[Rfam]
RNA sequence: CUUGACCGAGCCGAGCCAGAGGGGGUGGCCUUCCGGGCGGUCCUGGCCGUAGGUGGCCAGCAGGGCCUGCGCCUC
Numbered sequence: 001c002u003u004g005a006c007c008g009a010g011c012c013g014a015g016c017c018a019g020a021g022g023g024g025g026u027g028g029c030c031u032u033c034c035g036g037g038c039g040g041u042c043c044u045g046g047c048c049g050u051a052g053g054u055g056g057c058c059a060g061c062a063g064g065g066c067c068u069g070c071g072c073c074u075c
Base pairs, nucleotide, nucleotide: 014026016024017023031071033069038065043060044059045058047056048055049054
RNA: ASpks TB sRNA
Organism: Actinoplanes sp. N902-109